[Rfam]
RNA sequence: GAGCCAAGUGAUGUGAAUGGUUUUCUAAUCUCACAACGGUCAUCUGAGACCUUUCGAUGGUCUACAUUGAUGCAUCGCCAAUAGUCUGAUGGUU
Numbered sequence: 001g002a003g004c005c006a007a008g009u010g011a012u013g014u015g016a017a018u019g020g021u022u023u024u025c026u027a028a029u030c031u032c033a034c035a036a037c038g039g040u041c042a043u044c045u046g047a048g049a050c051c052u053u054u055c056g057a058u059g060g061u062c063u064a065c066a067u068u069g070a071u072g073c074a075u076c077g078c079c080a081a082u083a084g085u086c087u088g089a090u091g092g093u094u
Base pairs, nucleotide, nucleotide: 001094002093004091048062049061050060